RNA sequence: GGGCGAUGACGAUAGUUUCAGUGAAAGGUCUCGUUCGUCGUAAGGGCGAAUUCGCCUUGCCGACCAUCCUGAUAUUCUGAGCCC
Numbered sequence: 001g002g003g004c005g006a007u008g009a010c011g012a013u014a015g016u017u018u019c020a021g022u023g024a025a026a027g028g029u030c031u032c033g034u035u036c037g038u039c040g041u042a043a044g045g046g047c048g049a050a051u052u053c054g055c056c057u058u059g060c061c062g063a064c065c066a067u068c069c070u071g072a073u074a075u076u077c078u079g080a081g082c083c084c
Stems, first nucleotide, its partner, number of pairs: 001084004048058002
Description: This 84-nucleotide sequence from Nelumbo nucifera belongs to the Rfam family "Small nucleolar RNA Z43". The family has 7 seed sequences and 859 matches in Rfam 15.1. It scores 58 bits against the family's covariance model. The literature on the family includes a 2003 paper in Nucleic Acids Res by Chen et al., "The high diversity of snoRNAs in plants: identification and comparative study of 120 snoRNA genes from Oryza sativa".